[Rfam]
This 64-nucleotide RNA sequence belongs to the Rfam family "nadA riboswitch". The family's consensus secondary structure is taken from published work. On this family, see Chen et al., Nucleic Acids Res 2020: "Structural distinctions between NAD+ riboswitch domains 1 and 2 determine differential folding and ligand binding".
RNA sequence: GGCUGCAACAUCCCCGUGAGCGGGGUUAGCCGGUUUACCGGUAAACAGUGCGCUCACUGCAGUC
Numbered sequence: 001g002g003c004u005g006c007a008a009c010a011u012c013c014c015c016g017u018g019a020g021c022g023g024g025g026u027u028a029g030c031c032g033g034u035u036u037a038c039c040g041g042u043a044a045a046c047a048g049u050g051c052g053c054u055c056a057c058u059g060c061a062g063u064c
Stems, first nucleotide, its partner, number of pairs: 001064007013050001014048001016057007023049001025046003